[Rfam]
RNA sequence: ACACGAGGAAGGAGGUGGUUCCCAGAAUGAGUAUUCAGCGGACACGUGAGGUGGCUGCCGGCUAGGCACCACCGCUGCAGACGGAUUGCCGUUCGCGCGAGCGCCGAGUCAAUCCCAGGCAGCCACCCGGCCCCCGAGCUCCCGGUUUGUCCGAUCGGGAUCGCGAGAGACAAGCUCUCCGCGAUAAAGCUCGGGGGUCGUUCCGU
Numbered sequence: 001a002c003a004c005g006a007g008g009a010a011g012g013a014g015g016u017g018g019u020u021c022c023c024a025g026a027a028u029g030a031g032u033a034u035u036c037a038g039c040g041g042a043c044a045c046g047u048g049a050g051g052u053g054g055c056u057g058c059c060g061g062c063u064a065g066g067c068a069c070c071a072c073c074g075c076u077g078c079a080g081a082c083g084g085a086u087u088g089c090c091g092u093u094c095g096c097g098c099g100a101g102c103g104c105c106g107a108g109u110c111a112a113u114c115c116c117a118g119g120c121a122g123c124c125a126c127c128c129g130g131c132c133c134c135c136g137a138g139c140u141c142c143c144g145g146u147u148u149g150u151c152c153g154a155u156c157g158g159g160a161u162c163g164c165g166a167g168a169g170a171c172a173a174g175c176u177c178u179c180c181g182c183g184a185u186a187a188a189g190c191u192c193g194g195g196g197g198u199c200g201u202u203c204c205g206u
Base pairs, nucleotide, nucleotide: 014059015058016057017056018055019054060110061109062108063107065105066104069101073097074096075095128200129199130198131197132196133195134194135193136192137191138190139189140188141159142158143157144156145155146154

A member of the RNA family "Actinobacteria sRNA Ms_IGR-5" from Nocardia transvalensis, 206 nucleotides long. The literature on the family includes a 2013 paper in RNA by Li et al., "Identification of small RNAs in Mycobacterium smegmatis using heterologous Hfq". A search with the family's covariance model found it, with a score of 125 bits.